The family of this 107-nucleotide RNA sequence from Porphyromonas sp. COT-290 OH860 is "Bacteroidales small SRP".
Taxonomically the source falls in Porphyromonas (Bacteria, Pseudomonadati, Bacteroidota, Bacteroidales).
The family's consensus secondary structure is taken from published work.
RNA sequence: UUGCAUCGGGUAAGUCCCAUACGACCAGCUCCCUUUGACUCCCCCAGGGUUUGAUCGCAGCAAGGGUAUUAGGUCGUAGCGGUGCGAUAUGGAUCGCUUACCCUCCU
Numbered sequence: 001u002u003g004c005a006u007c008g009g010g011u012a013a014g015u016c017c018c019a020u021a022c023g024a025c026c027a028g029c030u031c032c033c034u035u036u037g038a039c040u041c042c043c044c045c046a047g048g049g050u051u052u053g054a055u056c057g058c059a060g061c062a063a064g065g066g067u068a069u070u071a072g073g074u075c076g077u078a079g080c081g082g083u084g085c086g087a088u089a090u091g092g093a094u095c096g097c098u099u100a101c102c103c104u105c106c107u
Stems, first nucleotide, its partner, number of pairs: 008103008017092005022086002024083002